Shown here is a 118-nucleotide sequence, a member of the family "Flavobacterium-1 RNA". The base pairs follow the family's consensus structure, which is taken from published work. The family's RNA type in Rfam is small RNA. The sequence is in the family's curated seed alignment.
RNA sequence: AAGCUCAAGGGCGUACAUAUCUUGCCGCUGGCAUUUCCCUGGACGUUACCUGUGACCUGCAAGGGUAGGGACCUGGAGUUUGGCCGGCCGCUAGUACGUCGACGGAACGCGGCUGGUU
Numbered sequence: 001a002a003g004c005u006c007a008a009g010g011g012c013g014u015a016c017a018u019a020u021c022u023u024g025c026c027g028c029u030g031g032c033a034u035u036u037c038c039c040u041g042g043a044c045g046u047u048a049c050c051u052g053u054g055a056c057c058u059g060c061a062a063g064g065g066u067a068g069g070g071a072c073c074u075g076g077a078g079u080u081u082g083g084c085c086g087g088c089c090g091c092u093a094g095u096a097c098g099u100c101g102a103c104g105g106a107a108c109g110c111g112g113c114u115g116g117u118u
Base pairs, nucleotide, nucleotide: 001081002080003079004078005077006076008074009073010072011046012045013044014043016041017040023033024032025031026030049069050068057065058064083117084116085115086114087113088112089111090110091109098103